[Rfam]
This 73-nucleotide RNA sequence from Geococcyx californianus belongs to the Rfam family "p27 cis-regulatory element". Taxonomically the source falls in Geococcyx (Eukaryota, Sauropsida, Archelosauria, Archosauria). Pairs were carried over by alignment from the consensus structure, which was predicted with PFOLD. This family represents a structured G/C rich element located in the 5' UTR of p27 mRNA. This element contributes to cell-cycle regulated translation and when deleted leads to a 50% drop in regulation. Gene Ontology term of the family: regulation of translation. It scores 43 bits against the family's covariance model. A reference for the family is Gopfert et al. (2003), "Cell cycle-dependent translation of p27 involves a responsive element in its 5'-UTR that overlaps with a uORF", Hum Mol Genet.
RNA sequence: CCACCUUUAGAGCCGGCGCUGGCGGCUCGGCAGGGCCGGUCCGACGGGGCGGCGCCCGCCGCCGUAACCAAUG
Numbered sequence: 001c002c003a004c005c006u007u008u009a010g011a012g013c014c015g016g017c018g019c020u021g022g023c024g025g026c027u028c029g030g031c032a033g034g035g036c037c038g039g040u041c042c043g044a045c046g047g048g049g050c051g052g053c054g055c056c057c058g059c060c061g062c063c064g065u066a067a068c069c070a071a072u073g
Stems, first nucleotide, its partner, number of pairs: 010041002013039002016036002044065004048060001050058003